[Rfam]
RNA: MIR8024 microRNA precursor family
RNA sequence: UUGGAAGAUUUGAAAACUGCAGCUUGCAUACUCGGAAGAUUUGAAGACUUAAACUUGUAUACAUGGAGGAUUUGAAGACUUCAACU
Dot-bracket structure: (((((...((((((..((.((...((((...(..((............))..)..))))....)).))..))))))...)))))..
Numbered sequence: 001u002u003g004g005a006a007g008a009u010u011u012g013a014a015a016a017c018u019g020c021a022g023c024u025u026g027c028a029u030a031c032u033c034g035g036a037a038g039a040u041u042u043g044a045a046g047a048c049u050u051a052a053a054c055u056u057g058u059a060u061a062c063a064u065g066g067a068g069g070a071u072u073u074g075a076a077g078a079c080u081u082c083a084a085c086u
Stems, first nucleotide, its partner, number of pairs: 001084005009076006017068002020065002025059004032053001035050002